Shown here is an 84-nucleotide sequence from Caenorhabditis briggsae, a member of the family "SmY spliceosomal RNA".
A search with the family's covariance model found it, with a score of 62 bits.
Lineage of the source: Eukaryota > Eumetazoa > Ecdysozoa > Rhabditomorpha > Caenorhabditis.
Rfam 15.1 lists 408 matches to the family in 67 species.
The family's RNA type in Rfam is spliceosomal small nuclear RNA.
[Rfam]
RNA sequence: CAGUAUCUAGCAUUUCGUCGAGGCCUUCUACAAGACCUUAAGUACAAUUUUUGGAAACCCUGCCUCAUUAUUUGGGGGAGGGUA
Numbered sequence: 001c002a003g004u005a006u007c008u009a010g011c012a013u014u015u016c017g018u019c020g021a022g023g024c025c026u027u028c029u030a031c032a033a034g035a036c037c038u039u040a041a042g043u044a045c046a047a048u049u050u051u052u053g054g055a056a057a058c059c060c061u062g063c064c065u066c067a068u069u070a071u072u073u074g075g076g077g078g079a080g081g082g083u084a
Stems, first nucleotide, its partner, number of pairs: 021038003025034003057083005063077005